[Rfam]
RNA sequence: GGGCACCUACGGGGGCCUUCAUACCAUGGUCGUCAUCGCGACGACCGACAGCAAAACGGAAGACAGACA
Numbered sequence: 001g002g003g004c005a006c007c008u009a010c011g012g013g014g015g016c017c018u019u020c021a022u023a024c025c026a027u028g029g030u031c032g033u034c035a036u037c038g039c040g041a042c043g044a045c046c047g048a049c050a051g052c053a054a055a056a057c058g059g060a061a062g063a064c065a066g067a068c069a
Base pairs, nucleotide, nucleotide: 001018002017003016004015006014007013008012028046029045030044031043032042033041034040

Rfam assigns this 69-nucleotide RNA sequence to the family "L2-Alphaproteobacteria ribosomal protein leader". The literature on the family includes a 2020 paper in BMC Microbiol by Eckert and Weinberg, "Discovery of 20 novel ribosomal leader candidates in bacteria and archaea". It is one of the family's seed sequences.